[Rfam]
RNA sequence: GGACGUUCUCAGGGCGGGGUGCGAUUCCCCACCGGCGGUGUUUGCGCCUCAAGCGCAUCAGCCCGCGAGCGCCCGCAGGGGAAACCUUGCGGGGUCAGCAGACCCGGUGUGAUCCCGGGGCCGACGGUAUAGUCCGGAUGAGAGAGAACGGUC
Number, nucleotide and partner (000 for none) at each position: 001g000002g000003a000004c150005g149006u148007u147008c146009u145010c144011a000012g000013g000014g000015c000016g000017g029018g028019g027020u000021g000022c000023g000024a000025u000026u000027c019028c018029c017030c000031a133032c132033c123034g122035g066036c065037g064038g063039u000040g000041u000042u000043u000044g000045c000046g000047c000048c000049u000050c000051a000052a000053g000054c000055g000056c000057a000058u000059c000060a000061g121062c120063c038064c037065g036066c035067g000068a000069g099070c098071g000072c000073c000074c000075g000076c000077a000078g000079g000080g000081g000082a000083a000084a000085c000086c000087u000088u000089g000090c000091g000092g000093g000094g000095u000096c000097a000098g070099c069100a000101g000102a000103c119104c118105c117106g116107g115108u000109g000110u000111g000112a000113u000114c000115c107116c106117g105118g104119g103120g062121c061122c034123g033124a000125c136126g135127g134128u000129a000130u000131a000132g032133u031134c127135c126136g125137g000138a000139u000140g000141a000142g000143a000144g010145a009146g008147a007148a006149c005150g004151g000152u000153c000
RNA: FMN riboswitch aptamer (RFN element)